[Rfam]
RNA sequence: UAGUACGAUUGAGGCGCGGUUUUCAUCAGUACUGUCCGAACAGGAGGCGAAUGCUCCGAUGACCGGACACAAAAGGGUCUGCCGCCGAAGAGGGCGUUUCGUUCGCUGACGUCUGUCUGGACGGGUACGAGAACAUCUGCCCGGCUGUCACCGGUUUGCUCCCGUGAUGCGCUAUCGCUACU
Dot-bracket structure: .....((((.(....(((((...(........((((((.........................)))))).......)...)))))...((((((((((.........))))))).)))((.((((((.(......).)))))).)).((((.((......)).))))....).)))).....
Numbered sequence: 001u002a003g004u005a006c007g008a009u010u011g012a013g014g015c016g017c018g019g020u021u022u023u024c025a026u027c028a029g030u031a032c033u034g035u036c037c038g039a040a041c042a043g044g045a046g047g048c049g050a051a052u053g054c055u056c057c058g059a060u061g062a063c064c065g066g067a068c069a070c071a072a073a074a075g076g077g078u079c080u081g082c083c084g085c086c087g088a089a090g091a092g093g094g095c096g097u098u099u100c101g102u103u104c105g106c107u108g109a110c111g112u113c114u115g116u117c118u119g120g121a122c123g124g125g126u127a128c129g130a131g132a133a134c135a136u137c138u139g140c141c142c143g144g145c146u147g148u149c150a151c152c153g154g155u156u157u158g159c160u161c162c163c164g165u166g167a168u169g170c171g172c173u174a175u176c177g178c179u180a181c182u
Stems, first nucleotide, its partner, number of pairs: 006177004011172001016085005024077001033069006089118003092114007119146002122143006129136001148167004153162002
A member of the RNA family "Lysine riboswitch aptamer" from Butyricicoccus porcorum, 182 nucleotides long. Pairs were carried over by alignment from the consensus structure, which is taken from published work. Its family is annotated with lysine biosynthetic process in the Gene Ontology. Lineage of the source: Bacteria > Clostridia > Eubacteriales > Butyricicoccaceae > Butyricicoccus.